[Rfam]
RNA sequence: CCUGCCGAAGUUUCCCUCAGGAUAGCUGGAACACGAUAUGCAGUAUUAUGAGGUAAAGCGAAUGAUUAGAGGCCUUGGGGACGCAAUGUCCUUAACCUAUUCUCAAACUUUAAAUGUGUAAGACGUCGUUGCUACUUUGUUGAGCCUCGACACUCGUAUGCAUGUGUUCUUAGUGGGCCAUUUUUGGUAAGCAGAACUGGCGAUGCGGGAUGAACCGAAAGGAGGGUUAAGGUGCCGGAAUACACGCUCAUCAGAUACCAGAAAAGGUGUUGGUUCAUCUAGACAGCAGGACGGUGGCCAUGGAAGUCGGAAUCCGCUAAGGAGUGUGUAACAACUCACCUGCCGAAUGAACUAGCCCUGAAAAUGGAUGGCGCUUAAGCGUGUUACCCACACCCUCCCGCCAGAGUAUACUCAUCGUCAAAUUGACGCUCUGGCGUGUAGGCAGGCGUGGCGGUCUCUACUAAACAGUUUCGAAGCCUAGGUGGUAACACCGGGUGGAACGGCCGCUAGUGCAGAU
Numbered sequence: 001c002c003u004g005c006c007g008a009a010g011u012u013u014c015c016c017u018c019a020g021g022a023u024a025g026c027u028g029g030a031a032c033a034c035g036a037u038a039u040g041c042a043g044u045a046u047u048a049u050g051a052g053g054u055a056a057a058g059c060g061a062a063u064g065a066u067u068a069g070a071g072g073c074c075u076u077g078g079g080g081a082c083g084c085a086a087u088g089u090c091c092u093u094a095a096c097c098u099a100u101u102c103u104c105a106a107a108c109u110u111u112a113a114a115u116g117u118g119u120a121a122g123a124c125g126u127c128g129u130u131g132c133u134a135c136u137u138u139g140u141u142g143a144g145c146c147u148c149g150a151c152a153c154u155c156g157u158a159u160g161c162a163u164g165u166g167u168u169c170u171u172a173g174u175g176g177g178c179c180a181u182u183u184u185u186g187g188u189a190a191g192c193a194g195a196a197c198u199g200g201c202g203a204u205g206c207g208g209g210a211u212g213a214a215c216c217g218a219a220a221g222g223a224g225g226g227u228u229a230a231g232g233u234g235c236c237g238g239a240a241u242a243c244a245c246g247c248u249c250a251u252c253a254g255a256u257a258c259c260a261g262a263a264a265a266g267g268u269g270u271u272g273g274u275u276c277a278u279c280u281a282g283a284c285a286g287c288a289g290g291a292c293g294g295u296g297g298c299c300a301u302g303g304a305a306g307u308c309g310g311a312a313u314c315c316g317c318u319a320a321g322g323a324g325u326g327u328g329u330a331a332c333a334a335c336u337c338a339c340c341u342g343c344c345g346a347a348u349g350a351a352c353u354a355g356c357c358c359u360g361a362a363a364a365u366g367g368a369u370g371g372c373g374c375u376u377a378a379g380c381g382u383g384u385u386a387c388c389c390a391c392a393c394c395c396u397c398c399c400g401c402c403a404g405a406g407u408a409u410a411c412u413c414a415u416c417g418u419c420a421a422a423u424u425g426a427c428g429c430u431c432u433g434g435c436g437u438g439u440a441g442g443c444a445g446g447c448g449u450g451g452c453g454g455u456c457u458c459u460a461c462u463a464a465a466c467a468g469u470u471u472c473g474a475a476g477c478c479u480a481g482g483u484g485g486u487a488a489c490a491c492c493g494g495g496u497g498g499a500a501c502g503g504c505c506g507c508u509a510g511u512g513c514a515g516a517u
Stems, first nucleotide, its partner, number of pairs: 001446006011024001013022003028170006044123001046121005056111001057109002063105003068100001070098003075095006082088001125151004131145003177201004182196005206217003221398005227392001231388003240385001242384001245381003265359003269356010286343005292316003298310002317321001322337001326335002399436009447512001449509008459500001476496002482491003
Rfam assigns this 517-nucleotide part of an RNA from Thamnocephalis sphaerospora to the family "Eukaryotic large subunit ribosomal RNA". The source organism's lineage runs through Eukaryota, Zoopagomycota, Zoopagomycotina, Zoopagales and Thamnocephalis. For this family Rfam cites "Crystal structure of the ribosome at 5.5 A resolution" (Yusupov et al., Science, 2001). The family is grouped with related families in Rfam's "LSU clan".